[Rfam]
RNA sequence: GCUGAUUUAGCUCAGUAGGUAGAGCACCUCACUUGUAAUGAGGAUGUCGGCGGUUCGAUUCCGUCAAUCAGCA
Numbered sequence: 001g002c003u004g005a006u007u008u009a010g011c012u013c014a015g016u017a018g019g020u021a022g023a024g025c026a027c028c029u030c031a032c033u034u035g036u037a038a039u040g041a042g043g044a045u046g047u048c049g050g051c052g053g054u055u056c057g058a059u060u061c062c063g064u065c066a067a068u069c070a071g072c073a
Stems, first nucleotide, its partner, number of pairs: 001072007010025004027043005049065005